A member of the RNA family "SAM riboswitch aptamer (S box leader)" from Exobacillus caeni, 114 nucleotides long. Taxonomically the source falls in Exobacillus (Bacteria, Bacillati, Bacillota, Guptibacillaceae).
[Rfam]
RNA sequence: UUCUUAUCCAGAGCGGUGGAGGGACUGGCCCGAUGAAACCCGGCAACCAUUAAGUCAUUGACUUAAUAAGGUGCUAAUUCCUGCAGGAUGUUCGAUCAUCCUGGUAGAUAAGAG
Numbered sequence: 001u002u003c004u005u006a007u008c009c010a011g012a013g014c015g016g017u018g019g020a021g022g023g024a025c026u027g028g029c030c031c032g033a034u035g036a037a038a039c040c041c042g043g044c045a046a047c048c049a050u051u052a053a054g055u056c057a058u059u060g061a062c063u064u065a066a067u068a069a070g071g072u073g074c075u076a077a078u079u080c081c082u083g084c085a086g087g088a089u090g091u092u093c094g095a096u097c098a099u100c101c102u103g104g105u106a107g108a109u110a111a112g113a114g
Base pairs, nucleotide, nucleotide: 001114002113003112004111005110006109007108008107013041015040016039017038021031022030023029025083027081028080042075043074044073045072047071048070049067050066051065052064053063054062079106084103085102086101087100088099089098